[Rfam]
RNA sequence: AAAGAAAAAGGGGGGGGGUUUUUUUUUUUUUUUUUUUUUUCUUUUUAAAAGUUUUAAAAAAAUAAAAAAAAAAACCCCCCCCCCCCCCCCCCCGGGGGGGGGUUGUUUU
Numbered sequence: 001a002a003a004g005a006a007a008a009a010g011g012g013g014g015g016g017g018g019u020u021u022u023u024u025u026u027u028u029u030u031u032u033u034u035u036u037u038u039u040u041c042u043u044u045u046u047a048a049a050a051g052u053u054u055u056a057a058a059a060a061a062a063u064a065a066a067a068a069a070a071a072a073a074a075c076c077c078c079c080c081c082c083c084c085c086c087c088c089c090c091c092c093c094g095g096g097g098g099g100g101g102g103u104u105g106u107u108u109u
Stems, first nucleotide, its partner, number of pairs: 015079004020074011032062002035059004041051004084102008
RNA: Phenylalanine leader peptide